[Rfam]
RNA sequence: AGGUCACGCAGCGACUGGCGGCACGGGGAUGGUCGAACCAUCGGGGAGCUCGUUGCGGAGAGUCGACCGCCUGGGCUCCCGCG
Numbered sequence: 001a002g003g004u005c006a007c008g009c010a011g012c013g014a015c016u017g018g019c020g021g022c023a024c025g026g027g028g029a030u031g032g033u034c035g036a037a038c039c040a041u042c043g044g045g046g047a048g049c050u051c052g053u054u055g056c057g058g059a060g061a062g063u064c065g066a067c068c069g070c071c072u073g074g075g076c077u078c079c080c081g082c083g
Stems, first nucleotide, its partner, number of pairs: 003056002006053003010050003015045002017071005029041004060078005
Dot-bracket structure: ..((.(((.(((..(([[[[[.......((((.....))))..))..)))))).))...(((((..]]]]]..))))).....

A member of the RNA family "ZMP/ZTP riboswitch aptamer (pfl RNA motif)" from Actinoplanes sp. OR16, 83 nucleotides long. The match comes from Rfam's covariance-model search (47 bits). The base pairs follow the family's consensus structure, which is taken from published work. Gene Ontology terms of the family: regulation of purine nucleotide biosynthetic process and one-carbon metabolic process. NCBI's taxonomy places the organism under Bacteria, Bacillati, Actinomycetes, Micromonosporaceae, Actinoplanes.